Record summary
Bacterial large subunit ribosomal RNA: a 437-nucleotide part of an RNA from Leptospirillum sp. Group II '5-way CG'. The base pairs follow the family's consensus structure, which is taken from published work.
RNA sequence: CUCCUCGAAAUCACUCUAGGGUGAGCCUUGCGUGAAUCCUGUCGGAGGUAGAGCACUGAAUGGACGAGGGGCCUUCACCGGCUACCGAAUCCAACCAAACUCCGAAUGCCGACAGAGAAUGCGCAGGAGUUAGACUACGGGUGCUAAGAUCCGUGGUCAAAAGGGAAACAGCCCAGACCGCCAGCUAAGGUCCCCAAUCCAUGCUUAGUGGGAAAGGAAGUGGAUAUCCAGAGACAGCCAGGAGGUUGGCUUAGAAGCAGCCAUCCUUUAAAGAGUGCGUAAUAGCUCACUGGUCAAGGGUAUCUGCACCGAAAAUGUAACGGGGCUCAAGCAUGGAACCGAAGCUGCGGACUGUCCGCAUGGACAGUGGUAGAGGAGCGUUCGUUCCGGAGUGAAGGAUGACCGAAAGGGCAUCUGGACCGGAAUGAAGAGAGAAU
Numbered sequence: 001c002u003c004c005u006c007g008a009a010a011u012c013a014c015u016c017u018a019g020g021g022u023g024a025g026c027c028u029u030g031c032g033u034g035a036a037u038c039c040u041g042u043c044g045g046a047g048g049u050a051g052a053g054c055a056c057u058g059a060a061u062g063g064a065c066g067a068g069g070g071g072c073c074u075u076c077a078c079c080g081g082c083u084a085c086c087g088a089a090u091c092c093a094a095c096c097a098a099a100c101u102c103c104g105a106a107u108g109c110c111g112a113c114a115g116a117g118a119a120u121g122c123g124c125a126g127g128a129g130u131u132a133g134a135c136u137a138c139g140g141g142u143g144c145u146a147a148g149a150u151c152c153g154u155g156g157u158c159a160a161a162a163g164g165g166a167a168a169c170a171g172c173c174c175a176g177a178c179c180g181c182c183a184g185c186u187a188a189g190g191u192c193c194c195c196a197a198u199c200c201a202u203g204c205u206u207a208g209u210g211g212g213a214a215a216g217g218a219a220g221u222g223g224a225u226a227u228c229c230a231g232a233g234a235c236a237g238c239c240a241g242g243a244g245g246u247u248g249g250c251u252u253a254g255a256a257g258c259a260g261c262c263a264u265c266c267u268u269u270a271a272a273g274a275g276u277g278c279g280u281a282a283u284a285g286c287u288c289a290c291u292g293g294u295c296a297a298g299g300g301u302a303u304c305u306g307c308a309c310c311g312a313a314a315a316u317g318u319a320a321c322g323g324g325g326c327u328c329a330a331g332c333a334u335g336g337a338a339c340c341g342a343a344g345c346u347g348c349g350g351a352c353u354g355u356c357c358g359c360a361u362g363g364a365c366a367g368u369g370g371u372a373g374a375g376g377a378g379c380g381u382u383c384g385u386u387c388c389g390g391a392g393u394g395a396a397g398g399a400u401g402a403c404c405g406a407a408a409g410g411g412c413a414u415c416u417g418g419a420c421c422g423g424a425a426u427g428a429a430g431a432g433a434g435a436a437u
Stems, first nucleotide, its partner, number of pairs: 001378006011024005026129001027127007036120001037117001039115007051103001052101002057097002061093004068086002070083004133158010163174003178350004183346003189340003198337007216310002220307010237294005243267003248262003268272001273288001277286002351368007379432001381429010397416005403410002
Overview: Rfam links the family to the GO terms structural constituent of ribosome and ribosome. The source organism's lineage runs through Bacteria, Pseudomonadati, Nitrospiria, Nitrospiraceae and Leptospirillum sp. Group II.